Rfam assigns this 112-nucleotide RNA from Aquibacillus salsiterrae to the family "epsC RNA". It scores 105 bits against the family's covariance model.
[Rfam]
RNA sequence: AGAUGAUAUCUCCUUUUACCUCUAUCAAUGGAGAUACUCGACUAUGCUGUGGGUCUUAGGACCUUAGACACUUGUUGUCAAUAGUAUAGUGUGAGGUGGGGUUAGAUGCCCC
Numbered sequence: 001a002g003a004u005g006a007u008a009u010c011u012c013c014u015u016u017u018a019c020c021u022c023u024a025u026c027a028a029u030g031g032a033g034a035u036a037c038u039c040g041a042c043u044a045u046g047c048u049g050u051g052g053g054u055c056u057u058a059g060g061a062c063c064u065u066a067g068a069c070a071c072u073u074g075u076u077g078u079c080a081a082u083a084g085u086a087u088a089g090u091g092u093g094a095g096g097u098g099g100g101g102u103u104a105g106a107u108g109c110c111c112c
Stems, first nucleotide, its partner, number of pairs: 001021002004018001007036007037095004041090008051064005067079004098112005